[Rfam]
Nucleotides: 071
Stems, first nucleotide, its partner, number of pairs: 007067007021053004
Number, partner (000 for none) and nucleotide at each position: 001000u002000g003000c004000g005000a006000a007067a008066c009065g010064c011063a012062u013061u014000a015000a016000a017000a018000g019000c020000u021053c022052u023051c024050g025000a026000c027000g028000g029000g030000u031000u032000c033000g034000a035000a036000g037000c038000c039000g040000u041000u042000g043000c044000c045000u046000g047000c048000u049000g050024c051023g052022g053021g054000a055000u056000c057000c058000u059000g060000a061013g062012a063011u064010g065009c066008g067007u068000g069000a070000g071000a